[Rfam]
Annotation:
Shown here is an 83-nucleotide sequence from Toxocara canis, a member of the family "mir-46/mir-47/mir-281 microRNA precursor family". Its family is annotated with miRNA-mediated post-transcriptional gene silencing and RISC complex in the Gene Ontology. The family's consensus secondary structure was predicted with RNAalifold. Rfam 15.1 lists 307 matches to the family in 262 species. On this family, see Aravin et al., Dev Cell 2003: "The small RNA profile during Drosophila melanogaster development".
RNA sequence: GAACGCAGACGGCUAAGAGAGCCAUCUGUUGACAGUUGUUUGUUGCCCACUGUCAUGGAGUUGCUCUCUUCAGAUGCCUGCGU
Dot-bracket structure: ..............((((.(((..((((..(((.((............)).))).))))...))).)))).............
Numbered sequence: 001g002a003a004c005g006c007a008g009a010c011g012g013c014u015a016a017g018a019g020a021g022c023c024a025u026c027u028g029u030u031g032a033c034a035g036u037u038g039u040u041u042g043u044u045g046c047c048c049a050c051u052g053u054c055a056u057g058g059a060g061u062u063g064c065u066c067u068c069u070u071c072a073g074a075u076g077c078c079u080g081c082g083u
Stems, first nucleotide, its partner, number of pairs: 015070004020065003025059004031054003035050002